[Rfam]
RNA sequence: UUCUAGCCCUGAUAGUAGUGGAAAUCCUUUUUUCUGGCUCCUUUAGCCAGGAAAAAGAUUGCAACGGAUAGCAGGAAAUAGC
Numbered sequence: 001u002u003c004u005a006g007c008c009c010u011g012a013u014a015g016u017a018g019u020g021g022a023a024a025u026c027c028u029u030u031u032u033u034c035u036g037g038c039u040c041c042u043u044u045a046g047c048c049a050g051g052a053a054a055a056a057g058a059u060u061g062c063a064a065c066g067g068a069u070a071g072c073a074g075g076a077a078a079u080a081g082c
Stems, first nucleotide, its partner, number of pairs: 009074003013070002018065002023060004028055002032053003035049005
RNA: Flavo-1 RNA
Organism: Flavobacterium psychrophilum